[Rfam]
RNA sequence: CUGAACAGAUACCAUAUAACUUAUAUAAGUCUGAGAUCGGUCAGAUGUUUCUACCAACUACCGUAAUAGUUGUCUAUAGGUUUUUCACGAAAAACA
Numbered sequence: 001c002u003g004a005a006c007a008g009a010u011a012c013c014a015u016a017u018a019a020c021u022u023a024u025a026u027a028a029g030u031c032u033g034a035g036a037u038c039g040g041u042c043a044g045a046u047g048u049u050u051c052u053a054c055c056a057a058c059u060a061c062c063g064u065a066a067u068a069g070u071u072g073u074c075u076a077u078a079g080g081u082u083u084u085u086c087a088c089g090a091a092a093a094a095c096a
Base pairs, nucleotide, nucleotide: 018082019081020080021079022078023077024076025075029046030045031044032043033042034041055072056071057070058069059068060067
Purine riboswitch aptamer: a 96-nucleotide sequence from Anaerobium acetethylicum. It scores 53 bits against the family's covariance model. Gene Ontology term of the family: purine nucleobase biosynthetic process.